[Rfam]
RNA sequence: CACGUAUUCCGGGGUCGGUGAAAGUCCGAACCGGCGGUUACAGCCCGCGACCCUGACGACGCGCCCGCGUCCGAUGGCUGACUCGGUGGAAUUCCGAGGCCGACAGUAAGAGUCUGGAUGGGAGGAAUGCGAG
Numbered sequence: 001c002a003c004g005u006a007u008u009c010c011g012g013g014g015u016c017g018g019u020g021a022a023a024g025u026c027c028g029a030a031c032c033g034g035c036g037g038u039u040a041c042a043g044c045c046c047g048c049g050a051c052c053c054u055g056a057c058g059a060c061g062c063g064c065c066c067g068c069g070u071c072c073g074a075u076g077g078c079u080g081a082c083u084c085g086g087u088g089g090a091a092u093u094c095c096g097a098g099g100c101c102g103a104c105a106g107u108a109a110g111a112g113u114c115u116g117g118a119u120g121g122g123a124g125g126a127a128u129g130c131g132a133g
Stems, first nucleotide, its partner, number of pairs: 003131008016028003030113002032102002034048004043100002052077002082098005104116003

Rfam assigns this 133-nucleotide sequence from Tessaracoccus oleiagri to the family "FMN riboswitch aptamer (RFN element)". The match comes from Rfam's covariance-model search (98 bits). Rfam describes the family as follows. The RFN element is a highly conserved domain that is found frequently in the 5'-untranslated regions of prokaryotic mRNAs that encode for flavin mononucleotide (FMN) biosynthesis and transport proteins. This element is a metabolite-dependent riboswitch that directly binds FMN in the absence of proteins. In Bacillus subtilis, the riboswitch most likely controls gene expression by causing premature transcription termination within the 5' untranslated region of the ribDEAHT operon and precluding access to the ribosome-binding site of ypaA mRNA.The FMN riboswitch structure, reported in present an FMN-bound six-stem junction, adopts a butterfly-like scaffold, stapled together by opposingly directed but nearly identically folded peripheral domains. Lineage of the source: Bacteria > Bacillati > Actinomycetes > Propionibacteriales > Tessaracoccus.